[Rfam]
RNA: Small nucleolar RNA SNORD60
RNA sequence: AGCCGGUGAUGACAAAUCAAAUAAACUUUUCUGACACCUACUAUGAGAGCUGAACUCCAGCUCCUGAUUCUAGCUUUUUCUCUGAGGCUC
Numbered sequence: 001a002g003c004c005g006g007u008g009a010u011g012a013c014a015a016a017u018c019a020a021a022u023a024a025a026c027u028u029u030u031c032u033g034a035c036a037c038c039u040a041c042u043a044u045g046a047g048a049g050c051u052g053a054a055c056u057c058c059a060g061c062u063c064c065u066g067a068u069u070c071u072a073g074c075u076u077u078u079u080c081u082c083u084g085a086g087g088c089u090c
Base pairs, nucleotide, nucleotide: 001089002088003087004086049061050060051059052058